The record is an 80-nucleotide RNA sequence from Nitrosomonas communis, which matches "SAH (S-adenosyl-L-homocysteine) riboswitch aptamer" in Rfam. Lineage of the source: Bacteria > Betaproteobacteria > Nitrosomonadales > Nitrosomonadaceae > Nitrosomonas.
RNA sequence: UAGACUGAGGAGCGCUGCAACGGGCAUCUAUCCGUGAGGCUCAGUAUAUGAGGAUAGCAACCUAACGGCGCUCGUUCAUU
Numbered sequence: 001u002a003g004a005c006u007g008a009g010g011a012g013c014g015c016u017g018c019a020a021c022g023g024g025c026a027u028c029u030a031u032c033c034g035u036g037a038g039g040c041u042c043a044g045u046a047u048a049u050g051a052g053g054a055u056a057g058c059a060a061c062c063u064a065a066c067g068g069c070g071c072u073c074g075u076u077c078a079u080u
Stems, first nucleotide, its partner, number of pairs: 002047001004045005021034004